[Rfam]
RNA sequence: CAUUGAAAAAGGCAAACUCAUCGAAAGGUGAGGACGCAAAGCCACAAGUCUAAAGCAUGAGAAUGCCAUGACGGUUGGGUUGCCAGU
Numbered sequence: 001c002a003u004u005g006a007a008a009a010a011g012g013c014a015a016a017c018u019c020a021u022c023g024a025a026a027g028g029u030g031a032g033g034a035c036g037c038a039a040a041g042c043c044a045c046a047a048g049u050c051u052a053a054a055g056c057a058u059g060a061g062a063a064u065g066c067c068a069u070g071a072c073g074g075u076u077g078g079g080u081u082g083c084c085a086g087u
Base pairs, nucleotide, nucleotide: 012037013036017032018031019030020029021028022027040081041080042079043078045077046076047075048072049071050070055066056065057064058063
RNA: c-di-GMP-I riboswitch aptamer
Organism: Clostridium thermosuccinogenes